The record is a 368-nucleotide RNA from Roseburia sp. CAG:18, which matches "Bacterial RNase P class A" in Rfam. The base pairs follow the family's consensus structure, which is taken from published work. It scores 279 bits against the family's covariance model. Taxonomically the source falls in Roseburia (Bacteria, Bacillota, Clostridia, Lachnospirales). Ribonuclease P (RNase P) is a ubiquitous endoribonuclease, found in archaea, bacteria and eukarya as well as chloroplasts and mitochondria.

RNA sequence: GAUGGAGGACAGGUGAUCGCGGCUGCAGGUGUCGAAAGACCGCAGGUGAGGAAAGUCCGGGCUUCACAGGGCAGGAUGCCGGUUAACGACCGGUGGAGGAAACUCUAAGGAAAGUGCAACAGAAAUAUACCGCUAUAAGAGAUGCAUCACAGAUGCACCUCUAUAGUAAGGGUGGAAUGGCAGUGUAAGAGACUACCGCCUCGCUGGUAACAGAGAGGGCACAUGUAAACCCCAUUCGAAGCAAGACCGAAACAAAGCGCUGACGUGGCCCGCCAGCUUUAGGUAGGUCGCUUGAGACGGUUGGCAACAAUCGUACUAGAUAGAUGAUCACCCAACGACAUAACCCGGCUUAUCGUCCUUCUUCUUAA
Numbered sequence: 001g002a003u004g005g006a007g008g009a010c011a012g013g014u015g016a017u018c019g020c021g022g023c024u025g026c027a028g029g030u031g032u033c034g035a036a037a038g039a040c041c042g043c044a045g046g047u048g049a050g051g052a053a054a055g056u057c058c059g060g061g062c063u064u065c066a067c068a069g070g071g072c073a074g075g076a077u078g079c080c081g082g083u084u085a086a087c088g089a090c091c092g093g094u095g096g097a098g099g100a101a102a103c104u105c106u107a108a109g110g111a112a113a114g115u116g117c118a119a120c121a122g123a124a125a126u127a128u129a130c131c132g133c134u135a136u137a138a139g140a141g142a143u144g145c146a147u148c149a150c151a152g153a154u155g156c157a158c159c160u161c162u163a164u165a166g167u168a169a170g171g172g173u174g175g176a177a178u179g180g181c182a183g184u185g186u187a188a189g190a191g192a193c194u195a196c197c198g199c200c201u202c203g204c205u206g207g208u209a210a211c212a213g214a215g216a217g218g219g220c221a222c223a224u225g226u227a228a229a230c231c232c233c234a235u236u237c238g239a240a241g242c243a244a245g246a247c248c249g250a251a252a253c254a255a256a257g258c259g260c261u262g263a264c265g266u267g268g269c270c271c272g273c274c275a276g277c278u279u280u281a282g283g284u285a286g287g288u289c290g291c292u293u294g295a296g297a298c299g300g301u302u303g304g305c306a307a308c309a310a311u312c313g314u315a316c317u318a319g320a321u322a323g324a325u326g327a328u329c330a331c332c333c334a335a336c337g338a339c340a341u342a343a344c345c346c347g348g349c350u351u352a353u354c355g356u357c358c359u360u361c362u363u364c365u366u367a368a
Stems, first nucleotide, its partner, number of pairs: 001364002004361007011353001012332007020048002023045004028040001053351003057348005062241004069270002072267001074237005079093005094108001095106004109232002114230002116226003130171002132167006139160001179197002182194003198220001199218004204213003245289004254280005262274001264272002297314007